Rfam assigns this 150-nucleotide sequence from Helicobacter acinonychis to the family "Bacterial antisense RNA HPnc0260".

[Rfam]
RNA sequence: AGUGUUAUCUUUUAAGGGCGUUAUUUUAGCGUGUUUAACGAUUUUUGAAUAUCAUUUUAGAGGCAAUCAAAAAUUUGCAAAAUGAGAAUUAAAAUUGGAGUAAUGUAAUAAUGGUGGCCACGACUGGACUUGAACCAGCGACCACUACCA
Numbered sequence: 001a002g003u004g005u006u007a008u009c010u011u012u013u014a015a016g017g018g019c020g021u022u023a024u025u026u027u028a029g030c031g032u033g034u035u036u037a038a039c040g041a042u043u044u045u046u047g048a049a050u051a052u053c054a055u056u057u058u059a060g061a062g063g064c065a066a067u068c069a070a071a072a073a074u075u076u077g078c079a080a081a082a083u084g085a086g087a088a089u090u091a092a093a094a095u096u097g098g099a100g101u102a103a104u105g106u107a108a109u110a111a112u113g114g115u116g117g118c119c120a121c122g123a124c125u126g127g128a129c130u131u132g133a134a135c136c137a138g139c140g141a142c143c144a145c146u147a148c149c150a
Stems, first nucleotide, its partner, number of pairs: 013037003019031004055071003112147006121140002124138004

A reference for the family is Sharma et al. (2010), "The primary transcriptome of the major human pathogen Helicobacter pylori", Nature. The sequence is in the family's curated seed alignment.